[Rfam]
RNA sequence: CAAACUAUUUAAAUUAAACACACAUAUACCGUCACAUGGUGCGGGGUGCUCGGAAACGGGUCGCAGCAUGGGGUGUAUGGAGGCUUAAC
Number, nucleotide and partner (000 for none) at each position: 001c000002a000003a000004a000005c000006u000007a000008u000009u000010u000011a000012a000013a000014u000015u000016a000017a000018a000019c000020a000021c000022a000023c079024a078025u077026a076027u075028a074029c073030c072031g000032u000033c000034a000035c070036a069037u068038g067039g000040u065041g064042c063043g062044g000045g000046g000047u000048g061049c060050u059051c058052g057053g000054a000055a000056a000057c052058g051059g050060g049061u048062c043063g042064c041065a040066g000067c038068a037069u036070g035071g000072g030073g029074u028075g027076u026077a025078u024079g023080g000081a000082g000083g000084c000085u000086u000087a000088a000089c000

Description: The family of this 89-nucleotide RNA from Lysobacter sp. N42 is "t44 RNA". The family's consensus secondary structure was predicted with LocARNA. Lineage of the source: Bacteria > Pseudomonadati > Pseudomonadota > Lysobacteraceae > Lysobacter. It scores 79 bits against the family's covariance model. On this family, see Tjaden et al., Nucleic Acids Res 2002: "Transcriptome analysis of Escherichia coli using high-density oligonucleotide probe arrays".